The family of this 114-nucleotide sequence from Esox lucius is "Potassium channel RNA editing signal". The base pairs follow the family's consensus structure, which is taken from published work. The family's RNA type in Rfam is cis-regulatory element. Lineage of the source: Eukaryota > Opisthokonta > Deuterostomia > Craniata > Esox.
RNA sequence: GUUGGCUAUGGGGACAUGAGGCCGGUGACAGUUGGAGGGAAAAUAGUGGGCUCGCUCUGUGCCAUAGCGGGCGUGUUGACCAUCGCGCUGCCGGUGCCCGUCAUUGUCUCCAAC
Number, nucleotide and partner (000 for none) at each position: 001g114002u113003u000004g111005g110006c000007u000008a107009u106010g105011g104012g000013g102014a101015c100016a000017u000018g097019a000020g000021g095022c094023c000024g000025g000026u000027g000028a000029c000030a000031g000032u000033u000034g000035g000036a000037g077038g076039g000040a074041a000042a000043a000044u000045a000046g000047u000048g000049g063050g062051c061052u000053c000054g000055c000056u000057c000058u000059g000060u000061g051062c050063c049064a000065u000066a000067g000068c000069g000070g000071g000072c000073g000074u040075g000076u038077u037078g000079a000080c000081c000082a000083u000084c000085g000086c000087g000088c000089u000090g000091c000092c000093g000094g022095u021096g000097c018098c000099c000100g015101u014102c013103a000104u011105u010106g009107u008108c000109u000110c005111c004112a000113a002114c001